[Rfam]
RNA sequence: UGAGUCGGCCAGGCGGUCGCGUCGCGGGGAAACUCGCGCCGAGGAACGUCCGGGCUCCACAGGGCAGGGUGGUGGGUAACACCCACCCGGGGUAACCCGCGGGAAAGUGCCACAGAAAUCAGACCGCCGUCCGGUUCGCCGGGCGGUAAGGGUGAAACGGUGGUGUAAGAGACCACCAGCGUGCCGGGUGACCGGUGCGGCUCGGUAAACCCCACCCGGAGCAAGACCAGACAGGGAGUGUUCGAGGGCGGCCCGCCCGAGCUCCCGGGUAGGUCGCUGGAGGCGUACGGCAACGUACGUCGUAGAUGGAUGGCCGCCACCGAGGCAAGUCCUCGGGACAGAACCCGGCGUACCGGCCGGCUCAUCCC
Numbered sequence: 001u002g003a004g005u006c007g008g009c010c011a012g013g014c015g016g017u018c019g020c021g022u023c024g025c026g027g028g029g030a031a032a033c034u035c036g037c038g039c040c041g042a043g044g045a046a047c048g049u050c051c052g053g054g055c056u057c058c059a060c061a062g063g064g065c066a067g068g069g070u071g072g073u074g075g076g077u078a079a080c081a082c083c084c085a086c087c088c089g090g091g092g093u094a095a096c097c098c099g100c101g102g103g104a105a106a107g108u109g110c111c112a113c114a115g116a117a118a119u120c121a122g123a124c125c126g127c128c129g130u131c132c133g134g135u136u137c138g139c140c141g142g143g144c145g146g147u148a149a150g151g152g153u154g155a156a157a158c159g160g161u162g163g164u165g166u167a168a169g170a171g172a173c174c175a176c177c178a179g180c181g182u183g184c185c186g187g188g189u190g191a192c193c194g195g196u197g198c199g200g201c202u203c204g205g206u207a208a209a210c211c212c213c214a215c216c217c218g219g220a221g222c223a224a225g226a227c228c229a230g231a232c233a234g235g236g237a238g239u240g241u242u243c244g245a246g247g248g249c250g251g252c253c254c255g256c257c258c259g260a261g262c263u264c265c266c267g268g269g270u271a272g273g274u275c276g277c278u279g280g281a282g283g284c285g286u287a288c289g290g291c292a293a294c295g296u297a298c299g300u301c302g303u304a305g306a307u308g309g310a311u312g313g314c315c316g317c318c319a320c321c322g323a324g325g326c327a328a329g330u331c332c333u334c335g336g337g338a339c340a341g342a343a344c345c346c347g348g349c350g351u352a353c354c355g356g357c358c359g360g361c362u363c364a365u366c367c368c
Stems, first nucleotide, its partner, number of pairs: 001364010012318007020041002023038006046351003050348005055221004062254004067217005072086005087101001088099004102212002107210002109206003124151002126147009159177006179201001180199008225275004234266006246258004282301008